RNA sequence: AUGUGAGGACGACCUCACCACGCCUGAUGUGUGACCACCCGGGGACGGCCCCU
Numbered sequence: 001a002u003g004u005g006a007g008g009a010c011g012a013c014c015u016c017a018c019c020a021c022g023c024c025u026g027a028u029g030u031g032u033g034a035c036c037a038c039c040c041g042g043g044g045a046c047g048g049c050c051c052c053u
Stems, first nucleotide, its partner, number of pairs: 003018006041052004
Shown here is a 53-nucleotide RNA sequence from Pseudomonas indica, a member of the family "Guanidine-II riboswitch aptamer (mini-ykkC)". Simpler in structure and has fewer highly conserved nucleotide positions than the ykkC-yxkD leader. Despite this each of its two stem-loop structures directly bind free guanidine. Therefore, mini-ykkC RNA motif represents a distinct class of guanidine-sensing RNAs. The base pairs follow the family's consensus structure, which is taken from published work.